[Rfam]
RNA sequence: AUAUUUAUACCGCUGAAUCAAUUUGAACGGGAGAACCAAUUUUUGGGGUGAAUCUUGCCAAUAAGAGCAAGUAGGGUUAUUCUUCAACCCGAAUCCGUCAGCUAAUCUCGUAAGCGUUGGAGAGAAGUUUU
Numbered sequence: 001a002u003a004u005u006u007a008u009a010c011c012g013c014u015g016a017a018u019c020a021a022u023u024u025g026a027a028c029g030g031g032a033g034a035a036c037c038a039a040u041u042u043u044u045g046g047g048g049u050g051a052a053u054c055u056u057g058c059c060a061a062u063a064a065g066a067g068c069a070a071g072u073a074g075g076g077u078u079a080u081u082c083u084u085c086a087a088c089c090c091g092a093a094u095c096c097g098u099c100a101g102c103u104a105a106u107c108u109c110g111u112a113a114g115c116g117u118u119g120g121a122g123a124g125a126a127g128u129u130u131u
Stems, first nucleotide, its partner, number of pairs: 011116004018026003027111006037045002046096003054071004074090004

Rfam assigns this 131-nucleotide RNA sequence from Clostridium carboxidivorans to the family "c-di-AMP riboswitch aptamer (ydaO/yuaA leader)". It scores 109 bits against the family's covariance model. The family has 106 seed sequences and 7,607 matches in Rfam 15.1. Pairs were carried over by alignment from the consensus structure. The source organism's lineage runs through Bacteria, Bacillota, Clostridiaceae, Clostridium and Clostridium carboxidivorans.